The record is a 45-nucleotide sequence from Orrella dioscoreae, which matches "Guanidine-II riboswitch aptamer (mini-ykkC)" in Rfam. The family's consensus secondary structure is taken from published work. Lineage of the source: Bacteria > Pseudomonadati > Pseudomonadota > Betaproteobacteria > Orrella. Its family is annotated with regulation of gene expression in the Gene Ontology.

[Rfam]
RNA sequence: CUUCAAGGACGGCCUUGAACGCGCGUGCACCCGGGGACGGCCCCG
Numbered sequence: 001c002u003u004c005a006a007g008g009a010c011g012g013c014c015u016u017g018a019a020c021g022c023g024c025g026u027g028c029a030c031c032c033g034g035g036g037a038c039g040g041c042c043c044c045g
Base pairs, nucleotide, nucleotide: 002019003018004017005016006015007014008013032045033044034043035042036041